Shown here is a 147-nucleotide RNA sequence from Georhizobium profundi, a member of the family "Alphaproteobacterial sRNA ar7". A reference for the family is del Val et al. (2012), "A survey of sRNA families in alpha-proteobacteria", RNA Biol. NCBI's taxonomy places the organism under Bacteria, Pseudomonadati, Pseudomonadota, Rhizobiaceae, Georhizobium. A search with the family's covariance model found it, with a score of 108 bits.
[Rfam]
RNA sequence: CAACACGAAAUCUGCCGGUGUCCGGCUCUACUGGCUUGUCCCCCGCCACUGCCGGACAUAGGGACAAAGGCCUCAUCCCCCUCUCCGGGCCUUUGUCCGAUCUAUAGGAAGCCGUCGCGACACCGCCCCCCGUCGCGGCGGCUUUUC
Dot-bracket structure: ....................((((((......(((.........)))...)))))).....(((((((((((...............)))))))))))...........(.((((((((((..........)))))))))).)....

Pairs were carried over by alignment from the consensus structure.